[Rfam]
RNA sequence: UUGAGUUAAAUCAUUGUCGGUCCUGCAUUUUGAAAAUGGAACCCACAUAAAGUGGUGGGACAUACAUUGGUUUCACCCAA
Numbered sequence: 001u002u003g004a005g006u007u008a009a010a011u012c013a014u015u016g017u018c019g020g021u022c023c024u025g026c027a028u029u030u031u032g033a034a035a036a037u038g039g040a041a042c043c044c045a046c047a048u049a050a051a052g053u054g055g056u057g058g059g060a061c062a063u064a065c066a067u068u069g070g071u072u073u074c075a076c077c078c079a080a
Base pairs, nucleotide, nucleotide: 001080002079003078005076006075008073009072010071011070012069013068015066016065017064023058024057025056026054027053028052029051030050031049032048
The record is an 80-nucleotide sequence from Medicago truncatula, which matches "MIR5269 microRNA precursor family" in Rfam. Rfam links the family to the GO terms miRNA-mediated post-transcriptional gene silencing and RISC complex. The base pairs follow the family's consensus structure, which was predicted with RNAalifold.